Record summary: Shown here is a 47-nucleotide RNA from Candidatus Electrothrix marina, a member of the family "Acido-Lenti-1 RNA". The base pairs follow the family's consensus structure, which is taken from published work.
[Rfam]
RNA sequence: CCCGCCGUUAAAAACAGCGGGCUACUUUCUGCCGUCCCUCCGGGACU
Numbered sequence: 001c002c003c004g005c006c007g008u009u010a011a012a013a014a015c016a017g018c019g020g021g022c023u024a025c026u027u028u029c030u031g032c033c034g035u036c037c038c039u040c041c042g043g044g045a046c047u
Stems, first nucleotide, its partner, number of pairs: 001021005007015002034046005